[Rfam]
RNA sequence: GCUGUUGUAGCUUAAUUCCACACACGUAUCGACACACCAUCUAGGGUGCCCUUAAGGGUUGGAUGGCGGGAUGCGUGGAGGCCUAAC
Number, nucleotide and partner (000 for none) at each position: 001g000002c000003u000004g000005u000006u000007g000008u000009a000010g000011c000012u000013u000014a000015a000016u000017u000018c000019c000020a000021c000022a000023c077024a076025c075026g074027u073028a072029u071030c070031g000032a000033c000034a000035c068036a000037c066038c065039a064040u063041c062042u061043a060044g000045g000046g000047u000048g059049c058050c057051c056052u000053u000054a000055a000056g051057g050058g049059u048060u043061g042062g041063a040064u039065g038066g037067c000068g035069g000070g030071a029072u028073g027074c026075g025076u024077g023078g000079a000080g000081g000082c000083c000084u000085a000086a000087c000